[Rfam]
Nucleotides: 244
Base pairs, nucleotide, nucleotide: 001214002213003212005210006209007208017158018157019156020155021154022153023152024151027148028147035056036055037054038053039052040051065127066126067125068124069123070122079092080091102118103117104116168183169182170181188201189200190199191198222244223243224242225241226240227239228238229237230236231235
Number, partner (000 for none) and nucleotide at each position: 001214a002213u003212c004000a005210a006209u007208a008000g009000u010000u011000u012000a013000c014000u015000a016000a017158c018157u019156u020155a021154a022153u023152g024151g025000c026000g027148g028147a029000a030000g031000c032000a033000c034000a035056c036055a037054c038053c039052c040051c041000a042000u043000a044000a045000u046000g047000g048000a049000a050000g051040g052039g053038g054037g055036u056035g057000g058000u059000g060000c061000u062000a063000a064000u065127g066126a067125c068124a069123g070122u071000c072000u073000u074000c075000g076000a077000a078000a079092c080091a081000u082000u083000a084000a085000c086000c087000u088000u089000a090000a091080u092079g093000a094000u095000u096000u097000c098000u099000u100000u101000c102118g103117c104116a105000a106000c107000u108000u109000u110000g111000a112000u113000u114000g115000u116104u117103g118102u119000a120000g121000u122070a123069c124068u125067g126066u127065c128000u129000u130000u131000u132000c133000a134000u135000c136000a137000a138000a139000a140000a141000a142000a143000a144000u145000a146000a147028u148027c149000c150000g151024c152023c153022a154021u155020u156019g157018a158017g159000u160000u161000g162000a163000c164000u165000g166000c167000u168183c169182g170181g171000c172000g173000g174000a175000u176000u177000a178000c179000g180000u181170c182169u183168g184000c185000g186000c187000u188201u189200c190199c191198c192000c193000u194000u195000u196000a197000a198191g199190g200189g201188a202000g203000u204000a205000u206000u207000u208007u209006a210005u211000u212003g213002a214001u215000a216000g217000c218000u219000u220000a221000c222244u223243g224242u225241c226240a227239g228238u229237g230236u231235u232000a233000c234000c235231a236230g237229c238228a239227c240226u241225g242224g243223c244222a
A member of the RNA family "BsrG" from Paraliobacillus ryukyuensis, 244 nucleotides long. Rfam links the family to the GO terms toxin activity and autolysis. By type it is a small RNA. Lineage of the source: Bacteria > Bacillati > Bacilli > Bacillaceae > Paraliobacillus. About the family: bsrE, bsrG and bsrH pair through intermolecular interactions with antisense sRNAs. They form type I toxin/antitoxin system that includes an mRNA encoding for a short, toxic peptide (bsrE, bsrG and bsrH) and an antitoxin that is comprised of an antisense RNA. bsrG encodes a 39-amino-acid toxin, and the 180 nucleotide antisense sRNA called SR4 acts as the antitoxin (they overlap by 123 nucleotides). SR4 interaction with the 3'UTR of bsrG RNA promotes bsrG degradation and inhibits its translation. The match comes from Rfam's covariance-model search (98 bits). On this family, see Saito et al., Gene 2008: "Novel small RNA-encoding genes in the intergenic regions of Bacillus subtilis".